[Rfam]
RNA: Lysine riboswitch aptamer
Organism: Clostridiaceae bacterium 14S0207
RNA sequence: GCUAGUGAUAGAGGCGCUGUAUUUAUUAGUACUACUAUUGAGGUAAGCACUAUGAAAUAGUAGAAAAGGAAAUAUGGCCGAAGUAUAUAACUAAUGCUUUAAGGUUAUAUAACUGGGCUUACAUAAAAUAUAUGUAAGACUGUCACAAAUAUAUUGUUUGUGAAGAGCUAUCUUAAAU
Numbered sequence: 001g002c003u004a005g006u007g008a009u010a011g012a013g014g015c016g017c018u019g020u021a022u023u024u025a026u027u028a029g030u031a032c033u034a035c036u037a038u039u040g041a042g043g044u045a046a047g048c049a050c051u052a053u054g055a056a057a058u059a060g061u062a063g064a065a066a067a068g069g070a071a072a073u074a075u076g077g078c079c080g081a082a083g084u085a086u087a088u089a090a091c092u093a094a095u096g097c098u099u100u101a102a103g104g105u106u107a108u109a110u111a112a113c114u115g116g117g118c119u120u121a122c123a124u125a126a127a128a129u130a131u132a133u134g135u136a137a138g139a140c141u142g143u144c145a146c147a148a149a150u151a152u153a154u155u156g157u158u159u160g161u162g163a164a165g166a167g168c169u170a171u172c173u174u175a176a177a178u
Base pairs, nucleotide, nucleotide: 007172008171009170010169011168016078017077018076019075020074021073022072023071024070032063033062034061035060036059037058038057039056082114083113084112085110086109087108088107089106090105091104092103115141116140118138119137120136121135122134123133124132125131143163144162145161146160147159148158149157